[Rfam]
RNA sequence: AUAUUGCUAGCGCUGAAUCAAUUGAGCGGGAGAACCAAUUUAGGGGUGAAUCUUGUCAUUAUGACAAGUAGGGUUAAUUUCUUCAAUCCGAAUCCGACAGCUAAUCUCGUAAGCGUUGAAGAGAGGUUUU
Numbered sequence: 001a002u003a004u005u006g007c008u009a010g011c012g013c014u015g016a017a018u019c020a021a022u023u024g025a026g027c028g029g030g031a032g033a034a035c036c037a038a039u040u041u042a043g044g045g046g047u048g049a050a051u052c053u054u055g056u057c058a059u060u061a062u063g064a065c066a067a068g069u070a071g072g073g074u075u076a077a078u079u080u081c082u083u084c085a086a087u088c089c090g091a092a093u094c095c096g097a098c099a100g101c102u103a104a105u106c107u108c109g110u111a112a113g114c115g116u117u118g119a120a121g122a123g124a125g126g127u128u129u130u
Stems, first nucleotide, its partner, number of pairs: 011115004018025002026110006036043001044095003052068004071089004

This 130-nucleotide sequence from Clostridium oryzae belongs to the Rfam family "c-di-AMP riboswitch aptamer (ydaO/yuaA leader)".